[Rfam]
RNA sequence: AUCUUCUGGAAAUUUUGUUAAAAUGCAGAUUUUGAUUCAGCAGGUGUGGGAUGAGACCUGAGAAUCUGCAUUUCUAACAAGUUCUCAGGUGAUGCCAG
Numbered sequence: 001a002u003c004u005u006c007u008g009g010a011a012a013u014u015u016u017g018u019u020a021a022a023a024u025g026c027a028g029a030u031u032u033u034g035a036u037u038c039a040g041c042a043g044g045u046g047u048g049g050g051a052u053g054a055g056a057c058c059u060g061a062g063a064a065u066c067u068g069c070a071u072u073u074c075u076a077a078c079a080a081g082u083u084c085u086c087a088g089g090u091g092a093u094g095c096c097a098g
Base pairs, nucleotide, nucleotide: 003091005089009085011083014081015080016079017078018077019076020075021073022072023071025069026068027067028066029065031063032062033061

About this RNA: The record is a 98-nucleotide sequence from Papio anubis, which matches "mir-544 microRNA precursor family" in Rfam. Its family is annotated with miRNA-mediated post-transcriptional gene silencing and RISC complex in the Gene Ontology. The literature on the family includes a 2010 paper in Genes Dev by Chiang et al., "Mammalian microRNAs: experimental evaluation of novel and previously annotated genes".